[Rfam]
RNA: Group II catalytic intron D1-D4-3
Organism: Microvirga tunisiensis
RNA sequence: GCCACCGCGAGGUGGGGUCUGAAGGAAGCGUGGAGCAAAACCGCGACCUGAUGAACAAGAACCGGAUACGAGGCCGCCUCGGCCGGACGAGCAGGCGAAAGGCUGCAAAGUCCACGGUCAUCAAAGACCGAGGCGGUAAAUCCGGCAGGUGUGCGGGGAAGGCGGUCGAAC
Number, nucleotide and partner (000 for none) at each position: 001g000002c015003c014004a013005c012006c011007g000008c000009g000010a000011g006012g005013u004014g003015g002016g000017g000018u000019c000020u000021g000022a000023a000024g000025g000026a000027a000028g171029c000030g000031u168032g167033g000034a000035g163036c162037a000038a000039a000040a000041c156042c155043g154044c153045g152046a150047c149048c148049u147050g146051a000052u000053g000054a000055a000056c000057a000058a000059g000060a000061a000062c145063c144064g143065g142066a141067u140068a000069c000070g000071a000072g000073g137074c136075c135076g000077c133078c132079u131080c130081g129082g128083c000084c000085g113086g112087a111088c110089g000090a000091g106092c105093a104094g103095g000096c000097g000098a000099a000100a000101g000102g000103c094104u093105g092106c091107a000108a000109a000110g088111u087112c086113c085114a000115c000116g000117g000118u000119c000120a000121u000122c000123a000124a000125a000126g000127a000128c082129c081130g080131a079132g078133g077134c000135g075136g074137u073138a000139a000140a067141u066142c065143c064144g063145g062146c050147a049148g048149g047150u046151g000152u045153g044154c043155g042156g041157g000158g000159a000160a000161g000162g036163c035164g000165g000166u000167c032168g031169a000170a000171c028